Description:
Shown here is a 73-nucleotide sequence from Medicago truncatula, a member of the family "MIR2629 microRNA precursor family". Gene Ontology terms of the family: miRNA-mediated post-transcriptional gene silencing and RISC complex.

[Rfam]
RNA sequence: UACCGAGGAAAUCCUCGGUAGUUUGCUGCCGCCGGUUUAAUCAAAACUUCGGCAGUUAACUGCCGAAGGGCAU
Numbered sequence: 001u002a003c004c005g006a007g008g009a010a011a012u013c014c015u016c017g018g019u020a021g022u023u024u025g026c027u028g029c030c031g032c033c034g035g036u037u038u039a040a041u042c043a044a045a046a047c048u049u050c051g052g053c054a055g056u057u058a059a060c061u062g063c064c065g066a067a068g069g070g071c072a073u
Stems, first nucleotide, its partner, number of pairs: 012069002015066009025056007

It scores 60 bits against the family's covariance model.